[Rfam]
RNA sequence: UUCGUCUGUCGUUCUAAGUAAAUCUCGUGCGGCUUGUCUCUACCAAGCCGUACGAGAUUUACUUGGACUGAUGGGUGA
Numbered sequence: 001u002u003c004g005u006c007u008g009u010c011g012u013u014c015u016a017a018g019u020a021a022a023u024c025u026c027g028u029g030c031g032g033c034u035u036g037u038c039u040c041u042a043c044c045a046a047g048c049c050g051u052a053c054g055a056g057a058u059u060u061a062c063u064u065g066g067a068c069u070g071a072u073g074g075g076u077g078a
Stems, first nucleotide, its partner, number of pairs: 006074006013067002016064021
RNA: mir-2767 microRNA precursor family
Organism: Operophtera brumata